[Rfam]
RNA sequence: GCGGUUGGGAGGUCCGCCGAUGCGGACCGUCGGGGUCGUUACCUCGCCCGGCCGC
Numbered sequence: 001g002c003g004g005u006u007g008g009g010a011g012g013u014c015c016g017c018c019g020a021u022g023c024g025g026a027c028c029g030u031c032g033g034g035g036u037c038g039u040u041a042c043c044u045c046g047c048c049c050g051g052c053c054g055c
Stems, first nucleotide, its partner, number of pairs: 001055004006050004011028007031046005
Source information:
A member of the RNA family "DUF3800-VI RNA" from Rhodovulum sp. PH10, 55 nucleotides long. The source organism's lineage runs through Bacteria, Pseudomonadati, Rhodobacterales, Paracoccaceae and Rhodovulum. The family's RNA type in Rfam is cis-regulatory element.